[Rfam]
RNA sequence: CGGCUCAGCAUUGUACCCAGGGUCUGCUGCUCAGACAUUGCACCUGGAGCUCCAAUAAAAACCUCUU
Numbered sequence: 001c002g003g004c005u006c007a008g009c010a011u012u013g014u015a016c017c018c019a020g021g022g023u024c025u026g027c028u029g030c031u032c033a034g035a036c037a038u039u040g041c042a043c044c045u046g047g048a049g050c051u052c053c054a055a056u057a058a059a060a061a062c063c064u065c066u067u
Stems, first nucleotide, its partner, number of pairs: 007051003017047004022036005
Background: The record is a 67-nucleotide RNA from Tinamus guttatus, which matches "U1A polyadenylation inhibition element (PIE)" in Rfam. Rfam's curators write: This family represents the U1A polyadenylation inhibition element (PIE). The source organism's lineage runs through Eukaryota, Gnathostomata, Sauropsida, Theropoda and Tinamus. The family has 39 seed sequences and 510 matches in Rfam 15.1. Rfam classes the family as a cis-regulatory element. It scores 56 bits against the family's covariance model.